Rfam assigns this 62-nucleotide RNA from Camelus dromedarius to the family "U7 small nuclear RNA". Pairs were carried over by alignment from the consensus structure, which was predicted with PFOLD.

[Rfam]
RNA sequence: GAGUGUUAAAGCAGUUUUAGAAUUUGCGUAGCAGGUGUUCCGGCCCGCACCGGAGAGCCCCU
Numbered sequence: 001g002a003g004u005g006u007u008a009a010a011g012c013a014g015u016u017u018u019a020g021a022a023u024u025u026g027c028g029u030a031g032c033a034g035g036u037g038u039u040c041c042g043g044c045c046c047g048c049a050c051c052g053g054a055g056a057g058c059c060c061c062u
Stems, first nucleotide, its partner, number of pairs: 034059003038055006
Animal histone pre-mRNAs are spliced by a different mechanism than nuclear pre-mRNAs and self-splicing introns. This processing involves the U7 snRNP, which contains only one RNA species: U7. The 5' end of U7 RNA is thought to base-pair to a conserved spacer element downstream of the cleavage site in histone pre-mRNA. This family contains a number of annotated U7 pseudogenes. The organism belongs to Camelus, within Eukaryota.